Rfam assigns this 164-nucleotide RNA from Melghirimyces algeriensis to the family "glmS glucosamine-6-phosphate activated ribozyme aptamer". Pairs were carried over by alignment from the consensus structure, which is taken from published work. It is annotated as a riboswitch.

RNA sequence: AUAGGUUGUAAAGCGCCAGGACUGUGGCAGUGGGACCGCAGUUGACGAGGAGGAGGGGGAUCGAGCAAUCGGCGGAUACCUCCCGGCUUGUGCACCGGAGCCGAUGAACCGGAACACAAAAGAAUGGGGUGACCUGUUCCACAAACGUUUCGGUACGGUGUACC
Dot-bracket structure: ...................((((((((........))))))))........(((((....((((....))))......)))))((((((........))))))....(((((((.......(((((((....)))))))........)))))))..........